[Rfam]
RNA sequence: CUCCACGGGGUUAGCGAUGACCCGCCGGGCGCCAUCUGGUCGCCAUAGCCCGGCGGUGAGCAGAGGCGAAACCGGACCCGUCUCG
Number, nucleotide and partner (000 for none) at each position: 001c085002u000003c000004c000005a081006c080007g000008g079009g078010g077011u076012u000013a000014g061015c060016g000017a000018u000019g000020a000021c000022c056023c055024g054025c053026c052027g051028g050029g049030c000031g000032c000033c000034a000035u000036c000037u000038g073039g072040u069041c068042g067043c066044c065045a000046u000047a000048g000049c029050c028051c027052g026053g025054c024055g023056g022057u000058g000059a000060g015061c014062a000063g000064a000065g044066g043067c042068g041069a040070a000071a000072c039073c038074g000075g000076a011077c010078c009079c008080g006081u005082c000083u000084c000085g001
Rfam assigns this 85-nucleotide RNA sequence from Blastococcus mobilis to the family "c-di-GMP-II-GAG riboswitch aptamer". A reference for the family is Weinberg et al. (2017), "Bioinformatic analysis of riboswitch structures uncovers variant classes with altered ligand specificity", Proc Natl Acad Sci U S A. Taxonomically the source falls in Blastococcus (Bacteria, Actinomycetota, Actinomycetes, Geodermatophilaceae). Gene Ontology terms of the family: cyclic-di-GMP binding and regulation of gene expression. Its Rfam clan is "c-di-GMP_II riboswitch clan".